This 313-nucleotide RNA from Natronomonas pharaonis belongs to the Rfam family "Archaeal signal recognition particle RNA". By type it is a non-coding RNA gene. Its family is annotated with SRP-dependent cotranslational protein targeting to membrane, signal sequence recognition and signal recognition particle, plasma membrane targeting in the Gene Ontology. Pairs were carried over by alignment from the consensus structure, which is taken from published work.
RNA sequence: AACUGGACUAGGUCGGGCGGUUAGGCCCCGCUCGAAACCCGCACUAUGGUCUUUAGCGGGGACCGAAGCCGGGGAACGUCUGGGCCAACCAGUACGGGCCCCGCAAGCCAACGUGGAAGCCUCGUCCUGCGAGGGCAGCGGUCCGUCGUCCGGCGUCUGCAGGGACGCUCGGGCGCGGUUAACCGUGGGUAAUCCGUCAGGCACGGAAGUGAGCAGCGGGCCCACGGACAGCUGUCGCCCGCAGGGUCGCGGGGUGGAGGAGGCGCGCGGGAAUCCCCGUACCGAGCGGCCCAGGCAAUCUUCGGGUCCACCA
Numbered sequence: 001a002a003c004u005g006g007a008c009u010a011g012g013u014c015g016g017g018c019g020g021u022u023a024g025g026c027c028c029c030g031c032u033c034g035a036a037a038c039c040c041g042c043a044c045u046a047u048g049g050u051c052u053u054u055a056g057c058g059g060g061g062a063c064c065g066a067a068g069c070c071g072g073g074g075a076a077c078g079u080c081u082g083g084g085c086c087a088a089c090c091a092g093u094a095c096g097g098g099c100c101c102c103g104c105a106a107g108c109c110a111a112c113g114u115g116g117a118a119g120c121c122u123c124g125u126c127c128u129g130c131g132a133g134g135g136c137a138g139c140g141g142u143c144c145g146u147c148g149u150c151c152g153g154c155g156u157c158u159g160c161a162g163g164g165a166c167g168c169u170c171g172g173g174c175g176c177g178g179u180u181a182a183c184c185g186u187g188g189g190u191a192a193u194c195c196g197u198c199a200g201g202c203a204c205g206g207a208a209g210u211g212a213g214c215a216g217c218g219g220g221c222c223c224a225c226g227g228a229c230a231g232c233u234g235u236c237g238c239c240c241g242c243a244g245g246g247u248c249g250c251g252g253g254g255u256g257g258a259g260g261a262g263g264c265g266c267g268c269g270g271g272a273a274u275c276c277c278c279g280u281a282c283c284g285a286g287c288g289g290c291c292c293a294g295g296c297a298a299u300c301u302u303c304g305g306g307u308c309c310a311c312c313a
Base pairs, nucleotide, nucleotide: 004310005309006308007307008306009305011064012063013062014061015033016032017031018030019029020028038060039059040058041057042056070304071303072302073301074300075299078296079295080294081293082292083290085288090284092282093281094280095279096278097277098276100271101270102269103268104267107264108263109262112259114257119255120254121253122252123251124250125249126245127244128243129242130241131240133238134236135235136234137233138232140229141180143178144177145176146175149172150171152169153168154167155166156165157164158163183227184226185225186224187223188222189221193220194219195218196217197216202211203210204209
Dot-bracket structure: ...((((((.((((((((((.......))))))....(((((.............))))))))).....((((((..((((((.(....(.(((((((.(((((..(((..(.(....(((((((((((((.((((((.((.((((..((.(((((((....))))))).))..)))).)..(((((((...(((((....(((....)))....)))))))))))).)..))))).).))))))...))))))).).)..)))..)))))....))))))).)...).).)))))..))))))))))))...